[Rfam]
RNA sequence: CACAACGUCUCUUAUCCUUGCGAUGCCUGACACACCUCCCUCCCCGUUCUAUAUUACCCAUAUAUUGGUACGGUAGAGACGACAAGCGGUUUUUGUUGAUGUCUUUUGUCCGCCAUUGCCCUGCUUCGAUUCACAACCGAGGCAGAGGAAACAUAAAACUAAUCUCAGAG
Numbered sequence: 001c002a003c004a005a006c007g008u009c010u011c012u013u014a015u016c017c018u019u020g021c022g023a024u025g026c027c028u029g030a031c032a033c034a035c036c037u038c039c040c041u042c043c044c045c046g047u048u049c050u051a052u053a054u055u056a057c058c059c060a061u062a063u064a065u066u067g068g069u070a071c072g073g074u075a076g077a078g079a080c081g082a083c084a085a086g087c088g089g090u091u092u093u094u095g096u097u098g099a100u101g102u103c104u105u106u107u108g109u110c111c112g113c114c115a116u117u118g119c120c121c122u123g124c125u126u127c128g129a130u131u132c133a134c135a136a137c138c139g140a141g142g143c144a145g146a147g148g149a150a151a152c153a154u155a156a157a158a159c160u161a162a163u164c165u166c167a168g169a170g
Stems, first nucleotide, its partner, number of pairs: 007033002012030003016025001018023001039081001040078003044073004048068002051065001056061001098164003101159002104157003107153003119148002121145004130141003
RNA: Ascomycota telomerase RNA, nucleotides 1009 to 1178
Organism: Rhexocercosporidium sp. MPI-PUGE-AT-0058